Sense overlapping transcript RNA 0042 (sot): a 178-nucleotide RNA from a halophilic archaeon.
RNA sequence: AAGUACCUCUGAGUCCGUCGGACGGUUCGUCCGCGGAUAGGAGUAACGGCUGGUUGGCGCAGCCAUCGACCUGCGUGUUCAAUAAGUCCACGGGUGAGUUCCACCCACAAGAACCGGUUGUGUCGUAGACCUUAAUAUCCCAACCGUGGUCGGGAAUCCUCGCCCUUCAGGGCGGGAG
Numbered sequence: 001a002a003g004u005a006c007c008u009c010u011g012a013g014u015c016c017g018u019c020g021g022a023c024g025g026u027u028c029g030u031c032c033g034c035g036g037a038u039a040g041g042a043g044u045a046a047c048g049g050c051u052g053g054u055u056g057g058c059g060c061a062g063c064c065a066u067c068g069a070c071c072u073g074c075g076u077g078u079u080c081a082a083u084a085a086g087u088c089c090a091c092g093g094g095u096g097a098g099u100u101c102c103a104c105c106c107a108c109a110a111g112a113a114c115c116g117g118u119u120g121u122g123u124c125g126u127a128g129a130c131c132u133u134a135a136u137a138u139c140c141c142a143a144c145c146g147u148g149g150u151c152g153g154g155a156a157u158c159c160u161c162g163c164c165c166u167u168c169a170g171g172g173c174g175g176g177a178g
Stems, first nucleotide, its partner, number of pairs: 003047002007043004013038005019033006048064005067125004072120001074117001077114004093105004138155004143150002157178001159176007
It is associated with IS1341-type transposase (tnpB) genes, at the 3'-end in H. salinarum NRC-1. The tetraloop structural motif may be functional. The literature on the family includes a 2015 paper in RNA Biol by Gomes-Filho et al., "Sense overlapping transcripts in IS1341-type transposase genes are functional non-coding RNAs in archaea".